[Rfam]
RNA sequence: AAGAACCGGCGGCCCGAUCGGCGGAAUGAGGGAGCAACGCCCGGAAACGCCGACCCUGAGACUCCGACGGGCGCGGGGCGGGCAGCGGCCCGCCCGGGUCCGAAGCUCGGUGAAGGCGGCACAAUGCCCGGCCGGCAAGGCCGGGGCGGAUAUGCCGGGGGUCUAGAAA
Number, nucleotide and partner (000 for none) at each position: 001a000002a000003g000004a000005a000006c000007c000008g000009g000010c000011g000012g000013c000014c000015c000016g000017a000018u053019c052020g051021g050022c049023g048024g000025a000026a000027u000028g000029a000030g000031g000032g042033a000034g040035c000036a000037a000038c000039g000040c034041c000042c032043g000044g000045a000046a000047a000048c023049g022050c021051c020052g019053a018054c161055c160056c159057u158058g000059a000060g000061a000062c000063u000064c110065c109066g108067a107068c102069g101070g100071g099072c098073g000074c096075g095076g094077g093078g000079c092080g091081g090082g089083c000084a000085g000086c000087g000088g000089c082090c081091c080092g079093c077094c076095c075096g074097g000098g072099u071100c070101c069102g068103a000104a000105g000106c000107u067108c066109g065110g064111u000112g000113a000114a000115g000116g000117c157118g156119g155120c154121a153122c000123a000124a000125u148126g147127c146128c145129c144130g000131g000132c000133c000134g142135g141136c000137a000138a000139g000140g000141c135142c134143g000144g129145g128146g127147c126148g125149g000150a000151u000152a000153u121154g120155c119156c118157g117158g057159g056160g055161g054162u000163c000164u000165a000166g000167a000168a000169a000
A member of the RNA family "Group II catalytic intron D1-D4-5" from Gemmiger sp. An194, 169 nucleotides long. Rfam describes the family as follows. Group II introns are found in rRNA, tRNA and mRNA of organelles in fungi, plants and protists, and also in mRNA in bacteria. Its family is annotated with Group II intron splicing in the Gene Ontology. A reference for the family is Bonen and Vogel (2001), "The ins and outs of group II introns", Trends Genet. The family has 139 seed sequences and 720 matches in Rfam 15.1. The match comes from Rfam's covariance-model search (95 bits).